Shown here is a 71-nucleotide RNA sequence, a member of the family "DUF805 RNA". The base pairs follow the family's consensus structure, which is taken from published work. Clan: DUF805 clan.

RNA sequence: AAAAAGUGGAGACCAGAACCCACUUUAAAAAACGGGGCGUAUUCUGAAAAGCCUUAUGAGUAGGAAAAAUU
Numbered sequence: 001a002a003a004a005a006g007u008g009g010a011g012a013c014c015a016g017a018a019c020c021c022a023c024u025u026u027a028a029a030a031a032a033c034g035g036g037g038c039g040u041a042u043u044c045u046g047a048a049a050a051g052c053c054u055u056a057u058g059a060g061u062a063g064g065a066a067a068a069a070u071u
Base pairs, nucleotide, nucleotide: 006023007022008021009020036053037052038051043065044064